The record is a 106-nucleotide RNA from Clostridium frigidicarnis, which matches "SAM riboswitch aptamer (S box leader)" in Rfam. The family's consensus secondary structure is taken from published work.

[Rfam]
Nucleotides: 106
Base pairs, nucleotide, nucleotide: 001106002105003104004103005102006101007100008099013041015040016039017038021031022030023029025080027078028077042072043071044070045069047068048067050063051062052061076098081095082094083093084092085091
Number, partner (000 for none) and nucleotide at each position: 001106u002105u003104c004103u005102u006101a007100u008099u009000a010000a011000g012000a013041g014000c015040g016039g017038u018000g019000g020000a021031g022030g023029g024000a025080c026000u027078g028077g029023c030022c031021c032000u033000a034000u035000g036000a037000a038017a039016c040015c041013c042072a043071g044070c045069a046000a047068c048067c049000g050063g051062u052061a053000u054000g055000u056000u057000u058000u059000u060000a061052u062051a063050c064000g065000u066000c067048g068047g069045u070044g071043c072042u073000a074000a075000a076098u077028c078027c079000u080025g081095c082094a083093g084092g085091u086000u087000u088000u089000u090000u091085a092084c093083c094082u095081g096000a097000a098076a099008g100007a101006u102005g103004a104003g105002a106001g

A search with the family's covariance model found it, with a score of 91 bits. The organism belongs to Clostridium, within Bacteria.